[Rfam]
RNA sequence: GUGACAAGCUCUGAUUGUCCAAACGCAAUUCUUGUGUUUUCUUAACUAAACAAGAGCUGUGCUGGGCAUCACAAGUUGUCAU
Dot-bracket structure: .((((((....((((.(((((..((((.((((((................)))))).)))).)))))))))....)))))).